[Rfam]
RNA sequence: GAGGUCUGCUCAGGGCCAGGGGCCUGAAGAAUGCCUCCUCUGUCUGCAACACACUCCGUAGGAACCUAGGGGCACGGUGAGGAGGGGCACAAAAGGUGUGACUUUUCUAUGAAUAAAUCCCUACCUCC
Numbered sequence: 001g002a003g004g005u006c007u008g009c010u011c012a013g014g015g016c017c018a019g020g021g022g023c024c025u026g027a028a029g030a031a032u033g034c035c036u037c038c039u040c041u042g043u044c045u046g047c048a049a050c051a052c053a054c055u056c057c058g059u060a061g062g063a064a065c066c067u068a069g070g071g072g073c074a075c076g077g078u079g080a081g082g083a084g085g086g087g088c089a090c091a092a093a094a095g096g097u098g099u100g101a102c103u104u105u106u107c108u109a110u111g112a113a114u115a116a117a118u119c120c121c122u123a124c125c126u127c128c
Base pairs, nucleotide, nucleotide: 003055004054005053007051008050013045014044015043016042019039020038021037022035024033069121070120071119077114078113082110084104085103086102088100089099090098091097